[Rfam]
RNA sequence: AUGAUGAUAGUGAGAGAUAUCUUUUAAGAUAGCCGAAGAAGCAAUGUGAAAGUGGCCUAACUUUUACAGAAACUUUCAGGCACAAGUAUCGCUAUUGGAUG
Number, nucleotide and partner (000 for none) at each position: 001a000002u000003g000004a000005u000006g096007a095008u094009a093010g092011u091012g090013a089014g000015a000016g000017a000018u000019a030020u029021c028022u027023u000024u000025u000026a000027a022028g021029a020030u019031a000032g081033c080034c079035g077036a076037a000038g000039a075040a074041g073042c000043a000044a000045u068046g067047u066048g065049a064050a063051a062052g061053u060054g000055g000056c000057c000058u000059a000060a053061c052062u051063u050064u049065u048066a047067c046068a045069g000070a000071a000072a000073c041074u040075u039076u036077c035078a000079g034080g033081c032082a000083c000084a000085a000086g000087u000088a000089u013090c012091g011092c010093u009094a008095u007096u006097g000098g000099a000100u000101g000
Overview:
The record is a 101-nucleotide RNA sequence from Anaeromicrobium sediminis, which matches "Glycine riboswitch aptamer" in Rfam. The organism belongs to Anaeromicrobium, within Bacteria.